Cauldobacter sRNA CC3552: a 108-nucleotide RNA from Phenylobacterium zucineum.
It is annotated as a small RNA.
The family's consensus secondary structure was predicted with RNAalifold.
RNA sequence: GGAGGCGGCGACGCCCCCCCCGACUUGAGACUGGCGAGCAUGCCAGUCUGCCGUCUCCGCACCCCUUUUCUCGAUGAUGCACACUGGGGCGGGUCCGACGGACCCGCC
Numbered sequence: 001g002g003a004g005g006c007g008g009c010g011a012c013g014c015c016c017c018c019c020c021c022g023a024c025u026u027g028a029g030a031c032u033g034g035c036g037a038g039c040a041u042g043c044c045a046g047u048c049u050g051c052c053g054u055c056u057c058c059g060c061a062c063c064c065c066u067u068u069u070c071u072c073g074a075u076g077a078u079g080c081a082c083a084c085u086g087g088g089g090c091g092g093g094u095c096c097g098a099c100g101g102a103c104c105c106g107c108c
Stems, first nucleotide, its partner, number of pairs: 001058010012022002029048007088108009